c-di-GMP-I riboswitch aptamer: an 85-nucleotide sequence from Lentibacillus sp. CBA3610.
RNA sequence: CUCAGAAAAAAGCAUACCUGUUGAAAAAUAGGGGCGCAAAGUCACAGGUCUAAAGCAUUAGUGUUAUGAUGGCUGGACUGCCUGA
Numbered sequence: 001c002u003c004a005g006a007a008a009a010a011a012g013c014a015u016a017c018c019u020g021u022u023g024a025a026a027a028a029u030a031g032g033g034g035c036g037c038a039a040a041g042u043c044a045c046a047g048g049u050c051u052a053a054a055g056c057a058u059u060a061g062u063g064u065u066a067u068g069a070u071g072g073c074u075g076g077a078c079u080g081c082c083u084g085a
Stems, first nucleotide, its partner, number of pairs: 012037002017032006040079004045075003048070003055064003

The base pairs follow the family's consensus structure, which is taken from published work. From the family's description: GEMM was predicted in a large-scale screen for bacterial structured RNA regulatory elements. Its Rfam clan is "c-di-GMP_I riboswitch clan".